[Rfam]
RNA sequence: UCUGAAAAAGGCAAACCAACUGUGAAGUUGGGACGCAAAGCCAUGGGUCUUCCAUAGAAAGAAUGCCAGGUUACCAGUC
Numbered sequence: 001u002c003u004g005a006a007a008a009a010g011g012c013a014a015a016c017c018a019a020c021u022g023u024g025a026a027g028u029u030g031g032g033a034c035g036c037a038a039a040g041c042c043a044u045g046g047g048u049c050u051u052c053c054a055u056a057g058a059a060a061g062a063a064u065g066c067c068a069g070g071u072u073a074c075c076a077g078u079c
Stems, first nucleotide, its partner, number of pairs: 003076002011036002016031006034065001039072004044068003048062002

The family of this 79-nucleotide RNA sequence from Candidatus Brocadiaceae bacterium S225 is "c-di-GMP-I-GGC riboswitch aptamer". Its Rfam clan is "c-di-GMP_I riboswitch clan". It scores 65 bits against the family's covariance model. Its family is annotated with cyclic-di-GMP binding in the Gene Ontology.